[Rfam]
RNA sequence: UUCUCUUUAUGAAAAUCUUGCAAAAAACUUCUUGAAGUGUGUAAGAUUUGAUUUUUACCUGAGAA
Dot-bracket structure: (((((........(((((((((.....(((....)))..)))))))))............)))))

Selenocysteine insertion sequence 1: a 65-nucleotide sequence from Acanthosepion pharaonis. A reference for the family is Walczak et al. (1996), "A novel RNA structural motif in the selenocysteine insertion element of eukaryotic selenoprotein mRNAs", RNA. The source organism's lineage runs through Eukaryota, Opisthokonta, Protostomia, Lophotrochozoa and Acanthosepion. By type it is a cis-regulatory element. The incorporation of selenocysteine into a protein sequence is directed by an in-frame UGA codon (usually a stop codon) within the coding region of the mRNA. Selenoprotein mRNAs contain a conserved secondary structure in the 3' UTR that is required for the distinction of UGA stop from UGA selenocysteine. The selenocysteine insertion sequence (SECIS) is around 60 nt in length and adopts a hairpin structure which is sufficiently well-defined and conserved to act as a computational screen for selenoprotein genes.